RNA sequence: AACAAAUUCCCGGAGAAGGAACUCCGGGAAAAUAGAAUAAAUAAAUAAUUAAGAUAGUAAUAGGAAGAACGAAUAUGUUUCAAU
Numbered sequence: 001a002a003c004a005a006a007u008u009c010c011c012g013g014a015g016a017a018g019g020a021a022c023u024c025c026g027g028g029a030a031a032a033u034a035g036a037a038u039a040a041a042u043a044a045a046u047a048a049u050u051a052a053g054a055u056a057g058u059a060a061u062a063g064g065a066a067g068a069a070c071g072a073a074u075a076u077g078u079u080u081c082a083a084u
Stems, first nucleotide, its partner, number of pairs: 007030009067080004
This 84-nucleotide sequence from Musa balbisiana belongs to the Rfam family "Plastid-rpl20 3UTR RNA". Rfam classes the family as a cis-regulatory element. About the family: Plastid rpl20 is a non-coding RNA (ncRNA) recognised in plastids. It was found in the three prime untranslated region (3UTR) of rpl20 gene, it presence in the 3UTR region sugest a role in transcript maduration. Taxonomically the source falls in Musa (Eukaryota, Embryophyta, Tracheophyta, Magnoliopsida).